[Rfam]
RNA sequence: AGACCAUGAUGGGGGCAUUUUCUAAGCAACUCCUUUAGUCUUUCCCAUGAUUCAUGCAUUAAUUCUACCGGGUGUUGGGAGAAUCCGGUUAUUGCUCUUCUCAUUGU
Numbered sequence: 001a002g003a004c005c006a007u008g009a010u011g012g013g014g015g016c017a018u019u020u021u022c023u024a025a026g027c028a029a030c031u032c033c034u035u036u037a038g039u040c041u042u043u044c045c046c047a048u049g050a051u052u053c054a055u056g057c058a059u060u061a062a063u064u065c066u067a068c069c070g071g072g073u074g075u076u077g078g079g080a081g082a083a084u085c086c087g088g089u090u091a092u093u094g095c096u097c098u099u100c101u102c103a104u105u106g107u
Base pairs, nucleotide, nucleotide: 001107003105006101057074058073060071
A member of the RNA family "Plant small nucleolar RNA R71" from Colocasia esculenta, 107 nucleotides long. Rfam links the family to the GO terms nucleolus and RNA processing. By type it is a C/D-box small nucleolar RNA.